[Rfam]
RNA sequence: GUGAGGUGAUGCUGAAGUUUAUCCAUUCGCUGAGUGUGAUGGUGCUGCCCUCCUGCAGCACCCCGAUUCCUGUUCUAGGGUUGGGGUGCUGUGCAGCCUCCAGAUACCCUUCAGUCUCCCAGUGUCCUGGGGACUGCUGUGGUGUGUGGCUAGCUGCCUGCAGGAGUGAAGUGGUGCUGGCAGGGUUGGAGCCCCUCUUUGGGGGGCUCCGUCCCCACUGAGAUGAGGAAUAAUGUCUGAUCAC
Numbered sequence: 001g002u003g004a005g006g007u008g009a010u011g012c013u014g015a016a017g018u019u020u021a022u023c024c025a026u027u028c029g030c031u032g033a034g035u036g037u038g039a040u041g042g043u044g045c046u047g048c049c050c051u052c053c054u055g056c057a058g059c060a061c062c063c064c065g066a067u068u069c070c071u072g073u074u075c076u077a078g079g080g081u082u083g084g085g086g087u088g089c090u091g092u093g094c095a096g097c098c099u100c101c102a103g104a105u106a107c108c109c110u111u112c113a114g115u116c117u118c119c120c121a122g123u124g125u126c127c128u129g130g131g132g133a134c135u136g137c138u139g140u141g142g143u144g145u146g147u148g149g150c151u152a153g154c155u156g157c158c159u160g161c162a163g164g165a166g167u168g169a170a171g172u173g174g175u176g177c178u179g180g181c182a183g184g185g186u187u188g189g190a191g192c193c194c195c196u197c198u199u200u201g202g203g204g205g206g207c208u209c210c211g212u213c214c215c216c217a218c219u220g221a222g223a224u225g226a227g228g229a230a231u232a233a234u235g236u237c238u239g240a241u242c243a244c
Base pairs, nucleotide, nucleotide: 010243011242013240017236018235020233024228026227027226028225029224030222031221034218035217038181040179041178043176044175045174046173047172048171050168051165052164053163054162055161056160057159059088060087061086062085063084064083065082068080069079070078071077093157094156095155096154097153106143107142112136113135114134115133116132117131118130119129121128122127183216184215185213187211188210189209190208192206193205194204195203

The family of this 244-nucleotide RNA from Corythaixoides concolor is "Small nucleolar RNA SNORD17". It is annotated as a C/D-box small nucleolar RNA. On this family, see Huttenhofer et al., EMBO J 2001: "RNomics: an experimental approach that identifies 201 candidates for novel, small, non-messenger RNAs in mouse".